[Rfam]
RNA: Mammalian CPEB3 ribozyme
RNA sequence: UUGCAAGUUCAAGGCCAUAGCAGAAGAGCUCAUAGUGCAGCCUGUCAGAUACCAAUAAAAUCUGCAAAUUCUGCU
Dot-bracket structure: ............[[[...((((((((.(.......).).]]]...(((((.........)))))....)))))))